ALIL pseudoknot: a 129-nucleotide RNA from Agrococcus pavilionensis.

RNA sequence: GGCUUUCUUCGCGGCGGAGCUCGACCGCCCACCGAAGUAUUGACCGCGUUCAUCGACGAGCACCGUGACGUGUUCGGGGUCGAGCCGAUCUGCCGCGUGCUGAGCCAGCACGGCGCCGCGAUCGCCCCG
Dot-bracket structure: ............(((((.......))))).............................................(((((......((.((.((.((((..............)))).)))).)))))))